[Rfam]
RNA sequence: GCAUACUGAAAGACAUGGGUAGUGAGAUGUUCGAUUUUGCGCUAUAUCUCACUAUUUUGUCUUUCACCAUGCU
Numbered sequence: 001g002c003a004u005a006c007u008g009a010a011a012g013a014c015a016u017g018g019g020u021a022g023u024g025a026g027a028u029g030u031u032c033g034a035u036u037u038u039g040c041g042c043u044a045u046a047u048c049u050c051a052c053u054a055u056u057u058u059g060u061c062u063u064u065c066a067c068c069a070u071g072c073u
Stems, first nucleotide, its partner, number of pairs: 008065008017057003021053009
Record summary
mir-71 microRNA precursor family: a 73-nucleotide RNA from Lepeophtheirus salmonis. The organism belongs to Lepeophtheirus, within Eukaryota. Pairs were carried over by alignment from the consensus structure, which was predicted with RNAalifold.